[Rfam]
RNA: Actinomyces-1 RNA
RNA sequence: UGUGCCGCCGGACGGAGAGGGUCACGAGGGUUGGGGAACCCGGUGACCGGCCCUCCUCCGAGAUGGCCCGGGGUCUAAGGGAGCCCGGGGUCGAUCGCUCUGGCGAAGGAG
Numbered sequence: 001u002g003u004g005c006c007g008c009c010g011g012a013c014g015g016a017g018a019g020g021g022u023c024a025c026g027a028g029g030g031u032u033g034g035g036g037a038a039c040c041c042g043g044u045g046a047c048c049g050g051c052c053c054u055c056c057u058c059c060g061a062g063a064u065g066g067c068c069c070g071g072g073g074u075c076u077a078a079g080g081g082a083g084c085c086c087g088g089g090g091u092c093g094a095u096c097g098c099u100c101u102g103g104c105g106a107a108g109g110a111g
Stems, first nucleotide, its partner, number of pairs: 006105007013060004018054006028041005062096003065092003069087004